[Rfam]
RNA sequence: AUACUUACCUGGCAGGGGAGACACCAUGAUCACGAAGGUGGUUUUCCCAGAGCAAGGCUUAUCCAUUGCCCUCUGGAUGUGCCAACCCCUUCAGUUUGCCAAAAUGUGGAAAGCUUGACUGCAUAAUUUAUGGUAGUGGGGGACUACAUUCGCGCUUUCUCCUA
Numbered sequence: 001a002u003a004c005u006u007a008c009c010u011g012g013c014a015g016g017g018g019a020g021a022c023a024c025c026a027u028g029a030u031c032a033c034g035a036a037g038g039u040g041g042u043u044u045u046c047c048c049a050g051a052g053c054a055a056g057g058c059u060u061a062u063c064c065a066u067u068g069c070c071c072u073c074u075g076g077a078u079g080u081g082c083c084a085a086c087c088c089c090u091u092c093a094g095u096u097u098g099c100c101a102a103a104a105u106g107u108g109g110a111a112a113g114c115u116u117g118a119c120u121g122c123a124u125a126a127u128u129u130a131u132g133g134u135a136g137u138g139g140g141g142g143a144c145u146a147c148a149u150u151c152g153c154g155c156u157u158u159c160u161c162c163u164a
Base pairs, nucleotide, nucleotide: 012122013121014120015119016048017047018046019045020044021043023042024041025040026039027038049090050089052087056083057082058081060079061078062077063076064075092117093116094115095113096111097110099109100108138163139162140161141160142159143158147154